[Rfam]
RNA sequence: GCCUUGUUGGCGCAAUCGGUAGCGCGUAUGACUCUUAAUCAUAAGGUUAGGGGUUCGAGCCCCCUACAGGGCU
Numbered sequence: 001g002c003c004u005u006g007u008u009g010g011c012g013c014a015a016u017c018g019g020u021a022g023c024g025c026g027u028a029u030g031a032c033u034c035u036u037a038a039u040c041a042u043a044a045g046g047u048u049a050g051g052g053g054u055u056c057g058a059g060c061c062c063c064c065u066a067c068a069g070g071g072c073u
Base pairs, nucleotide, nucleotide: 001072002071003070004069005068006067007066010025011024012023013022027043028042029041030040031039049065050064051063052062053061
Description: A member of the RNA family "tRNA" from Saccharomyces cerevisiae, 73 nucleotides long. The family's RNA type in Rfam is transfer RNA. The family's consensus secondary structure is taken from published work. The source organism's lineage runs through Eukaryota, Opisthokonta, Ascomycota, Saccharomycotina and Saccharomyces.